[Rfam]
RNA sequence: GUUCUCGCUACUGCAAAUAAUCAAAUUCAAUUGGAAAGAAACUUCGAGACCUG
Number, nucleotide and partner (000 for none) at each position: 001g051002u000003u049004c048005u047006c046007g000008c000009u000010a000011c000012u000013g000014c000015a000016a000017a000018u000019a000020a000021u000022c000023a000024a000025a000026u000027u000028c000029a000030a000031u000032u000033g000034g000035a000036a000037a000038g000039a000040a000041a000042c000043u000044u000045c000046g006047a005048g004049a003050c000051c001052u000053g000
This 53-nucleotide sequence from Cavenderia fasciculata belongs to the Rfam family "Class I RNA from Dictyostelium". The organism belongs to Cavenderia, within Eukaryota. Pairs were carried over by alignment from the consensus structure, which is taken from published work. Rfam's curators put it in the seed alignment. Rfam classes the family as a non-coding RNA gene. About the family: Dictyostelium Class I RNA was first reported for Aspegren et al. 2004 in Dictyostelium discoideum. Sucgang et al. 2011 identify putative homologs of Class I RNA in D. discoideum and D. purpureum. Avesson et al. 2011 report that Class I RNA present a down regulation during the development of social amoeba Dictyostelium discoideum, they also found that deletion of one of the Class I RNAs, DdR-21, results in aberrant development. Kjellin et al. 2020 report an extended number of expressed Class I RNA genes in class Dictyostelia, in their analysis they remark that Class I RNA appear to be unique to dictyostelid social amoebas, and they hypothesise that Class I RNAs were involved in evolution of multicellularity in Dictyostelia. A reference for the family is Kjellin et al. (2021), "Abundantly expressed class of noncoding RNAs conserved through the multicellular evolution of dictyostelid social amoebas", Genome Res.